[Rfam]
RNA: nrdJ RNA
RNA sequence: ACGUGCCGAGGCAUCGGGUGUGCCGAGGCGGCAGAAAACACUGUGCAACGGGAAGAUCCGAGGCACUUCAGGGCGUU
Numbered sequence: 001a002c003g004u005g006c007c008g009a010g011g012c013a014u015c016g017g018g019u020g021u022g023c024c025g026a027g028g029c030g031g032c033a034g035a036a037a038a039c040a041c042u043g044u045g046c047a048a049c050g051g052g053a054a055g056a057u058c059c060g061a062g063g064c065a066c067u068u069c070a071g072g073g074c075g076u077u
Base pairs, nucleotide, nucleotide: 004030005029006028007027010024011023012022013021014020043066044065045064046063049060050059